[Rfam]
RNA sequence: GCCGGUCUUCAGGGCGGGGUGAAAUUCCCCACCGGCGGUAUGCCGCGGCGUUUGCCGGCGGCGAGCCCGCGAGCGCCGCGCAGUCGUAGCCACGACGCGCGGGUCAGCAGAUUCGGUGCGAAGCCGAAGCCGACGGUGAGAGUCCGGAUGAGAGAAGACGCGC
Number, nucleotide and partner (000 for none) at each position: 001g000002c000003c000004g000005g159006u158007c157008u156009u155010c154011a000012g000013g000014g000015c000016g000017g029018g028019g027020u000021g000022a000023a000024a000025u000026u000027c019028c018029c017030c000031a143032c142033c132034g131035g070036c069037g068038g067039u000040a000041u000042g000043c000044c000045g000046c000047g000048g000049c000050g000051u000052u000053u000054g000055c000056c000057g000058g000059c000060g000061g000062c000063g000064a000065g130066c129067c038068c037069g036070c035071g000072a000073g108074c107075g000076c000077c000078g000079c000080g000081c000082a000083g000084u000085c000086g000087u000088a000089g000090c000091c000092a000093c000094g000095a000096c000097g000098c000099g000100c000101g000102g000103g000104u000105c000106a000107g074108c073109a000110g000111a000112u128113u127114c126115g125116g124117u000118g000119c000120g000121a000122a000123g000124c116125c115126g114127a113128a112129g066130c065131c034132g033133a000134c146135g145136g144137u000138g000139a000140g000141a000142g032143u031144c136145c135146g134147g000148a000149u000150g000151a000152g000153a000154g010155a009156a008157g007158a006159c005160g000161c000162g000163c000